[Rfam]
RNA sequence: CAACACGUUGUUGUGUUGACUUAUGCGGUCCCCGCCGCGUAUCGGCUAGAACCCGACACUAUAGGAGAAAAACAAUG
Numbered sequence: 001c002a003a004c005a006c007g008u009u010g011u012u013g014u015g016u017u018g019a020c021u022u023a024u025g026c027g028g029u030c031c032c033c034g035c036c037g038c039g040u041a042u043c044g045g046c047u048a049g050a051a052c053c054c055g056a057c058a059c060u061a062u063a064g065g066a067g068a069a070a071a072a073c074a075a076u077g
Base pairs, nucleotide, nucleotide: 001018002017003016004015005014006013022041023040024039025038026037027036028035042056043055044054045053